Rfam assigns this 89-nucleotide sequence from Olea europaea to the family "small nucleolar RNA snoR117".

RNA sequence: GGCCAAUGAUGCAUAAAAAUUGUCCGUACCAUCUGAGGAUCUUUACUAAGUCUCCUUUGAUGUGAAUUCGCCUGUAUUUUCUGAGGUCU
Numbered sequence: 001g002g003c004c005a006a007u008g009a010u011g012c013a014u015a016a017a018a019a020u021u022g023u024c025c026g027u028a029c030c031a032u033c034u035g036a037g038g039a040u041c042u043u044u045a046c047u048a049a050g051u052c053u054c055c056u057u058u059g060a061u062g063u064g065a066a067u068u069c070g071c072c073u074g075u076a077u078u079u080u081c082u083g084a085g086g087u088c089u
Base pairs, nucleotide, nucleotide: 001088002087003086004085
Dot-bracket structure: ((((................................................................................)))).
It is annotated as a C/D-box small nucleolar RNA.
The family has 6 seed sequences and 419 matches in Rfam 15.1.
It scores 61 bits against the family's covariance model.
The base pairs follow the family's consensus structure, which was predicted with RNAalifold.